[Rfam]
Source information: The family of this 90-nucleotide RNA from Anolis carolinensis is "mir-727 microRNA precursor family". Rfam's curators put it in the seed alignment. Its family is annotated with miRNA-mediated post-transcriptional gene silencing and RISC complex in the Gene Ontology. NCBI's taxonomy places the organism under Eukaryota, Chordata, Gnathostomata, Toxicofera, Anolis.
RNA sequence: CUGUAUGUCAUUUUCAGUCUUCAAUUCCUCCCAGCCCGUUAAAUGGAAAAGGUGAGUUGAGGCGAGUUGAAGACUAAAAAUGCUGUGCAG
Numbered sequence: 001c002u003g004u005a006u007g008u009c010a011u012u013u014u015c016a017g018u019c020u021u022c023a024a025u026u027c028c029u030c031c032c033a034g035c036c037c038g039u040u041a042a043a044u045g046g047a048a049a050a051g052g053u054g055a056g057u058u059g060a061g062g063c064g065a066g067u068u069g070a071a072g073a074c075u076a077a078a079a080a081u082g083c084u085g086u087g088c089a090g
Stems, first nucleotide, its partner, number of pairs: 001090007009082006016075012030062002032059004036046004